Rfam assigns this 322-nucleotide RNA from Massilimicrobiota sp. An134 to the family "Bacterial RNase P class B". Rfam's curators write: Ribonuclease P (RNase P) is a ubiquitous endoribonuclease, found in archaea, bacteria and eukarya as well as chloroplasts and mitochondria. Lineage of the source: Bacteria > Bacillota > Erysipelotrichia > Erysipelotrichales > Massiliimicrobium.

[Rfam]
RNA sequence: UCAUGAGAACCGAUUGCUAGAAAUAGAGGAAAGUCCGGGCAUCCACAAUCUGCGAUGAUUGUAGUGUUUGUACUGCAUCUAAUAAAUGCAGGUAGCAUCUUGCUAACGACAGACCUAAGACCUAAACCGUCAGGCAUGGUUGAUAAGUCAUAAAGUGCCACAGAAACAAUGUCUUUUGAAAAAAAGAGUGAAAAGCGGUAAACUCUGCAAGGAUGAAACCCAAAUUUUGGUAGGGGAGCUUCAUAGAGGGAAUUGAACUGAUAUGAAGAUGUGUUAUACACAUAGAUAAAUAAUCGGUUGAAAAACAGAACUCGGCUUAUCA
Numbered sequence: 001u002c003a004u005g006a007g008a009a010c011c012g013a014u015u016g017c018u019a020g021a022a023a024u025a026g027a028g029g030a031a032a033g034u035c036c037g038g039g040c041a042u043c044c045a046c047a048a049u050c051u052g053c054g055a056u057g058a059u060u061g062u063a064g065u066g067u068u069u070g071u072a073c074u075g076c077a078u079c080u081a082a083u084a085a086a087u088g089c090a091g092g093u094a095g096c097a098u099c100u101u102g103c104u105a106a107c108g109a110c111a112g113a114c115c116u117a118a119g120a121c122c123u124a125a126a127c128c129g130u131c132a133g134g135c136a137u138g139g140u141u142g143a144u145a146a147g148u149c150a151u152a153a154a155g156u157g158c159c160a161c162a163g164a165a166a167c168a169a170u171g172u173c174u175u176u177u178g179a180a181a182a183a184a185a186g187a188g189u190g191a192a193a194a195g196c197g198g199u200a201a202a203c204u205c206u207g208c209a210a211g212g213a214u215g216a217a218a219c220c221c222a223a224a225u226u227u228u229g230g231u232a233g234g235g236g237a238g239c240u241u242c243a244u245a246g247a248g249g250g251a252a253u254u255g256a257a258c259u260g261a262u263a264u265g266a267a268g269a270u271g272u273g274u275u276a277u278a279c280a281c282a283u284a285g286a287u288a289a290a291u292a293a294u295c296g297g298u299u300g301a302a303a304a305a306c307a308g309a310a311c312u313c314g315g316c317u318u319a320u321c322a
Base pairs, nucleotide, nucleotide: 008320009298010297011296012295013294014293015292017026018025019024031318032317033316035315036314037313038312039311040215041214042213043212044211045062046061047060048059049058050057068210069209070208071207072206073091074090075089076088077087078086092107093105094104095103096102097101108205109204112149113148114147119141120140121139122138127134128133155203156202157199158198159197172187173186174185175184176183177182219235220234221233239268240267241266242265243264244263245262269283270282271281272280273279274278
A reference for the family is Frank and Pace (1998), "Ribonuclease P: unity and diversity in a tRNA processing ribozyme", Annu Rev Biochem. It scores 239 bits against the family's covariance model. By type it is a ribozyme.